The family of this 83-nucleotide sequence from Synechococcus sp. MIT S9508 is "Cyanobacterial ribosomal protein S1 leader". The source organism's lineage runs through Bacteria, Bacillati, Cyanobacteriota, Synechococcales and Synechococcus. The literature on the family includes a 2007 paper in Nucleic Acids Res by Weinberg et al., "Identification of 22 candidate structured RNAs in bacteria using the CMfinder comparative genomics pipeline". About the family: cyano-S1 is a ncRNA recognized in the 5-prime region of genes encoding 30S ribosomal protein S1, it has been proposed as an cis regulation element.
[Rfam]
RNA sequence: AUCUGUAGAAUCGGCAAUUGCCUGAUUCAGGUCGGCGGGCCUGUUUCAGAUCCCAUCGCUCUGCCCCAGAGGCAGACCGCCAA
Numbered sequence: 001a002u003c004u005g006u007a008g009a010a011u012c013g014g015c016a017a018u019u020g021c022c023u024g025a026u027u028c029a030g031g032u033c034g035g036c037g038g039g040c041c042u043g044u045u046u047c048a049g050a051u052c053c054c055a056u057c058g059c060u061c062u063g064c065c066c067c068a069g070a071g072g073c074a075g076a077c078c079g080c081c082a083a
Stems, first nucleotide, its partner, number of pairs: 024047002028043005034081005061075005